[Rfam]
RNA sequence: CGGCAGUCCGAGGGGUGCCUGAAAGGGCUGAGACGGCUUAACAAGCCGAACCCUUUGAACCUGAUCCGGGUCAUGCCGGCGAAGGAACGGGGCUUUCCGCGGGC
Numbered sequence: 001c002g003g004c005a006g007u008c009c010g011a012g013g014g015g016u017g018c019c020u021g022a023a024a025g026g027g028c029u030g031a032g033a034c035g036g037c038u039u040a041a042c043a044a045g046c047c048g049a050a051c052c053c054u055u056u057g058a059a060c061c062u063g064a065u066c067c068g069g070g071u072c073a074u075g076c077c078g079g080c081g082a083a084g085g086a087a088c089g090g091g092g093c094u095u096u097c098c099g100c101g102g103g104c
Stems, first nucleotide, its partner, number of pairs: 007091004011054004016048001017028004035047005060085003066079004
The family of this 104-nucleotide RNA sequence from Hansschlegelia plantiphila is "TPP riboswitch aptamer (THI element)". A search with the family's covariance model found it, with a score of 73 bits. From the family's description: Vitamin B(1) in its active form thiamin pyrophosphate (TPP) is an essential coenzyme that is synthesised by coupling of pyrimidine and thiazole moieties in bacteria.